[Rfam]
RNA sequence: AAUGCAGGAUUGUGUGUAUCGGCUUUACGCUGCUUGUGUGCUGUGCGUUCUUGCCGAAAGUGUUUCCUGCUAAACAAAUUUUGAGGAAAGUGGGCAGUUGGGUUAAGCUUGUUAUCUGCUUUUUUCAACAAUCAUUUUCCCCCCAUGU
Numbered sequence: 001a002a003u004g005c006a007g008g009a010u011u012g013u014g015u016g017u018a019u020c021g022g023c024u025u026u027a028c029g030c031u032g033c034u035u036g037u038g039u040g041c042u043g044u045g046c047g048u049u050c051u052u053g054c055c056g057a058a059a060g061u062g063u064u065u066c067c068u069g070c071u072a073a074a075c076a077a078a079u080u081u082u083g084a085g086g087a088a089a090g091u092g093g094g095c096a097g098u099u100g101g102g103u104u105a106a107g108c109u110u111g112u113u114a115u116c117u118g119c120u121u122u123u124u125u126c127a128a129c130a131a132u133c134a135u136u137u138u139c140c141c142c143c144c145a146u147g148u
Stems, first nucleotide, its partner, number of pairs: 004070005009064001014048006083142001085140009097129004

This 148-nucleotide sequence from Oryza brachyantha belongs to the Rfam family "small nucleolar RNA snoR135". A search with the family's covariance model found it, with a score of 103 bits. The base pairs follow the family's consensus structure, which was predicted with RNAalifold. The literature on the family includes a 2009 paper in Nucleic Acids Res by Chen and Wu, "Mining small RNA sequencing data: a new approach to identify small nucleolar RNAs in Arabidopsis". The family has 6 seed sequences and 837 matches in Rfam 15.1. Taxonomically the source falls in Oryza (Eukaryota, Liliopsida, commelinids, Oryzoideae). Rfam links the family to the GO terms RNA processing and nucleolus.